[Rfam]
RNA sequence: UUUUUAGUAUAAGUAUGUUCCAUACAAUACUUGGCAUAUACUUAUAUUAAAA
Dot-bracket structure: .....(((((((.(((.(.(((........).)).).))).)))))))....